[Rfam]
The record is a 136-nucleotide RNA from Sciurus carolinensis, which matches "U8 small nucleolar RNA" in Rfam. Rfam 15.1 lists 1,597 matches to the family in 457 species. A search with the family's covariance model found it, with a score of 110 bits.
RNA sequence: UUAUCAGAUUGCAUAAUCCUUACCUGUUUCUCCUUUGCGAGGGCAGAAUAGAACAUGAUAAUUGGAGUUUGUGUGGUAUGUGAUCAAUGUGUUUGCAUGAUCAGGACUUGCAACACCCUGAUUACUCCUAUCUGAU
Number, nucleotide and partner (000 for none) at each position: 001u000002u000003a000004u000005c000006a000007g000008a000009u000010u000011g000012c000013a000014u000015a000016a000017u000018c000019c000020u000021u000022a000023c000024c046025u045026g044027u000028u043029u042030c041031u040032c039033c000034u000035u000036u000037g000038c000039g032040a031041g030042g029043g028044c026045a025046g024047a000048a000049u000050a000051g000052a000053a000054c000055a000056u000057g000058a000059u000060a000061a000062u000063u000064g000065g000066a000067g000068u000069u000070u000071g000072u000073g000074u000075g093076g092077u000078a090079u089080g088081u086082g000083a000084u000085c000086a081087a000088u080089g079090u078091g000092u076093u075094u000095g000096c000097a000098u124099g123100a122101u121102c120103a119104g118105g117106a000107c000108u000109u000110g000111c000112a000113a000114c000115a000116c000117c105118c104119u103120g102121a101122u100123u099124a098125c000126u000127c000128c000129u000130a000131u000132c000133u000134g000135a000136u000

The source organism's lineage runs through Eukaryota, Theria, Euarchontoglires, Sciurinae and Sciurus.